Rfam assigns this 155-nucleotide sequence from Populus trichocarpa to the family "MIR2912 microRNA precursor family". Rfam 15.1 lists 15,051 matches to the family in 15 species.
RNA sequence: UCUAGAACUCGAGAUAUGGGCUGAACACUGAACAGUGUCUAGGCUGUAAGAUAGAUUCUGACUUCUCCGUUGUUGCUAAGAUUUGGACUUCCAAACAGCAGAAUUGAGUCUUGGACUCUUAUGAAUAUUUUAGGCCUAUGUCAUAGCUUUCUAGC
Dot-bracket structure: .((((((((.(.(((((((((((((.(.......(((...(((.(..(((((.(((((((.((.....(..(((...........)))..).....)))))))))..)))))..).)))))).....)))))).)))))))).)))..)))))).
Numbered sequence: 001u002c003u004a005g006a007a008c009u010c011g012a013g014a015u016a017u018g019g020g021c022u023g024a025a026c027a028c029u030g031a032a033c034a035g036u037g038u039c040u041a042g043g044c045u046g047u048a049a050g051a052u053a054g055a056u057u058c059u060g061a062c063u064u065c066u067c068c069g070u071u072g073u074u075g076c077u078a079a080g081a082u083u084u085g086g087a088c089u090u091c092c093a094a095a096c097a098g099c100a101g102a103a104u105u106g107a108g109u110c111u112u113g114g115a116c117u118c119u120u121a122u123g124a125a126u127a128u129u130u131u132a133g134g135c136c137u138a139u140g141u142c143a144u145a146g147c148u149u150u151c152u153a154g155c
Stems, first nucleotide, its partner, number of pairs: 002154006008146002011144001013142008021133005027128001035122003041119003045115001048112005054105007062098002069091001072088003